[Rfam]
The family of this 138-nucleotide sequence from Cavia porcellus is "Small nucleolar RNA SNORA43".
Rfam's curators write: ACA43 is a member of the H/ACA class of snoRNA that guide the sites of modification of uridines to pseudouridines.
Lineage of the source: Eukaryota > Euarchontoglires > Rodentia > Hystricomorpha > Cavia.
RNA sequence: GGAGUAAUGGACCUACCAGCAUCAUGGGCACAGCCACUCCUCUGUUUCUGUGACUUUAGGGCAAAGAGCAACCAGCUAUUUCUAUGCUCAGUGUUUGGGGACCAGUGAGCACUGAGAAUGGAUUAUAGCCUGACAUUC
Numbered sequence: 001g002g003a004g005u006a007a008u009g010g011a012c013c014u015a016c017c018a019g020c021a022u023c024a025u026g027g028g029c030a031c032a033g034c035c036a037c038u039c040c041u042c043u044g045u046u047u048c049u050g051u052g053a054c055u056u057u058a059g060g061g062c063a064a065a066g067a068g069c070a071a072c073c074a075g076c077u078a079u080u081u082c083u084a085u086g087c088u089c090a091g092u093g094u095u096u097g098g099g100g101a102c103c104a105g106u107g108a109g110c111a112c113u114g115a116g117a118a119u120g121g122a123u124u125a126u127a128g129c130c131u132g133a134c135a136u137u138c
Stems, first nucleotide, its partner, number of pairs: 004062002008058003024051004075129002082121003087116002092111006